Record summary:
The family of this 113-nucleotide RNA sequence from Actinomadura craniellae is "Guanidine-I riboswitch aptamer". Lineage of the source: Bacteria > Bacillati > Streptosporangiales > Thermomonosporaceae > Actinomadura.
[Rfam]
RNA sequence: GUGAGGCGCGCCUAGGGUUCCGCCGGCCCCCGGAACGGGUGGACCGGGUCUGGUCCGAGAGGCGAGGCGGGUGCACGGCAUCCGUUCCACGGCGGGACAAAAGCCCGGGAGGU
Dot-bracket structure: ......(.((((..((...(((((((.(.............).))))..).)).))....)))).)((((((((...))))))).).(.[...(((.......))).)..]..